Record summary
Shown here is a 274-nucleotide RNA sequence from Mitosporidium daphniae, a member of the family "Nuclear RNase P". Gene Ontology terms of the family: tRNA processing, ribonuclease P activity and ribonuclease P complex. The literature on the family includes a 1998 paper in Annu Rev Biochem by Frank and Pace, "Ribonuclease P: unity and diversity in a tRNA processing ribozyme".

[Rfam]
RNA sequence: CCAAGCUGAAGCUCUCAAUUGAGGGGCAUAUGUUUUAUGCUCCUCGGGAAGGUCUGAGAUCGCCUGCAAACUUGCCCGAGAGGGCUUCCGCCGAGAGGCGGAACAGGUCAACAGAAAAAAACUCUGCCAGUCGCUAUAGCGGACGACCGGAGAAAUCCGCGACGCUGCUGCUGGCAGUGCUGGAAGCACCUGUGGCAGUAGCUCGAUAGUGCAAUAUGAGAGCUUUUGCAUCGCAAGAUGGAAAAGAACCCAAUUCAGACUACUCUCAGCUUGG
Numbered sequence: 001c002c003a004a005g006c007u008g009a010a011g012c013u014c015u016c017a018a019u020u021g022a023g024g025g026g027c028a029u030a031u032g033u034u035u036u037a038u039g040c041u042c043c044u045c046g047g048g049a050a051g052g053u054c055u056g057a058g059a060u061c062g063c064c065u066g067c068a069a070a071c072u073u074g075c076c077c078g079a080g081a082g083g084g085c086u087u088c089c090g091c092c093g094a095g096a097g098g099c100g101g102a103a104c105a106g107g108u109c110a111a112c113a114g115a116a117a118a119a120a121a122c123u124c125u126g127c128c129a130g131u132c133g134c135u136a137u138a139g140c141g142g143a144c145g146a147c148c149g150g151a152g153a154a155a156u157c158c159g160c161g162a163c164g165c166u167g168c169u170g171c172u173g174g175c176a177g178u179g180c181u182g183g184a185a186g187c188a189c190c191u192g193u194g195g196c197a198g199u200a201g202c203u204c205g206a207u208a209g210u211g212c213a214a215u216a217u218g219a220g221a222g223c224u225u226u227u228g229c230a231u232c233g234c235a236a237g238a239u240g241g242a243a244a245a246g247a248a249c250c251c252a253a254u255u256c257a258g259a260c261u262a263c264u265c266u267c268a269g270c271u272u273g274g
Base pairs, nucleotide, nucleotide: 001274002273003272004271007268008267009266012222013221014220015219016218017217021045022044023043024042025041026040027039028038029037030036054258055257056256057255058254064198065197066196067195074085075084076083077082087102088101089100090099091098092097103193104192105191106190107189108188122179123177223246224245225244226243227242229240230239231238